Shown here is a 46-nucleotide RNA sequence from Lacipirellula limnantheis, a member of the family "Acido-Lenti-1 RNA".
A search with the family's covariance model found it, with a score of 54 bits.
RNA sequence: CCGUGGGCUUACGCCCACGGCUAAGUCAUGUCGCCGCGUCGCGGCU
Numbered sequence: 001c002c003g004u005g006g007g008c009u010u011a012c013g014c015c016c017a018c019g020g021c022u023a024a025g026u027c028a029u030g031u032c033g034c035c036g037c038g039u040c041g042c043g044g045c046u
Stems, first nucleotide, its partner, number of pairs: 001020008033045005
The family's consensus secondary structure is taken from published work. The organism belongs to Lacipirellula, within Bacteria.